[Rfam]
RNA sequence: GUUGAGAGGAAUGUUGUCUGGCUCGAGGUCAUGGAGGUUGAUUCUCUAUGACACUUUUCCGGGGUCAAGUUUCAGUACAAGUACUGGAAAAGUUCAUAAUUUGAACCCUAAAUGAUUCUCGGACCAGGCUUCAUUCCCCCCAAC
Dot-bracket structure: ((((.(.((((((..((((((..(((((........................................................................................)))))..))))))..)))))).).))))
Numbered sequence: 001g002u003u004g005a006g007a008g009g010a011a012u013g014u015u016g017u018c019u020g021g022c023u024c025g026a027g028g029u030c031a032u033g034g035a036g037g038u039u040g041a042u043u044c045u046c047u048a049u050g051a052c053a054c055u056u057u058u059c060c061g062g063g064g065u066c067a068a069g070u071u072u073c074a075g076u077a078c079a080a081g082u083a084c085u086g087g088a089a090a091a092g093u094u095c096a097u098a099a100u101u102u103g104a105a106c107c108c109u110a111a112a113u114g115a116u117u118c119u120c121g122g123a124c125c126a127g128g129c130u131u132c133a134u135u136c137c138c139c140c141c142a143a144c
Stems, first nucleotide, its partner, number of pairs: 001144004006139001008137006016129006024121005

mir-166 microRNA precursor family: a 144-nucleotide sequence from Carya illinoinensis.
A reference for the family is Reinhart et al. (2002), "MicroRNAs in plants", Genes Dev.
From the family's description: This family represents the plant microRNA (miRNA) precursor mir-166.